[Rfam]
Nucleotides: 167
Base pairs, nucleotide, nucleotide: 001167002166003165004164005163010161012159015154016153017152018151019150020149021148022147023146026140027139029138031136035079036078037077040073041072042071043070044069047064048063049062050061051060052059083133084132085131086130087129089128090127091126092125096123098121100119101118103117104116105114106113107112
Number, partner (000 for none) and nucleotide at each position: 001167u002166a003165g004164u005163g006000a007000g008000a009000c010161u011000a012159g013000g014000u015154u016153c017152g018151u019150g020149u021148g022147a023146u024000g025000a026140c027139g028000a029138g030000u031136c032000a033000g034000g035079u036078c037077g038000g039000g040073c041072u042071c043070c044069g045000c046000g047064c048063u049062g050061g051060g052059u053000u054000u055000g056000g057000u058000c059052a060051c061050c062049c063048a064047g065000g066000g067000g068000a069044u070043g071042g072041a073040g074000a075000u076000a077037u078036g079035g080000a081000a082000a083133g084132g085131a086130u087129c088000u089128c090127g091126u092125g093000c094000g095000c096123u097000a098121u099000a100119a101118g102000u103117c104116u105114a106113a107112c108000g109000a110000a111000a112107g113106u114105u115000g116104a117103g118101c119100u120000u121098g122000c123096a124000a125092c126091a127090u128089g129087g130086g131085u132084c133083u134000a135000u136031g137000c138029c139027u140026g141000a142000a143000u144000a145000a146023g147022u148021c149020a150019c151018g152017u153016g154015a155000g156000u157000u158000g159012c160000c161010a162000c163005c164004a165003c166002u167001a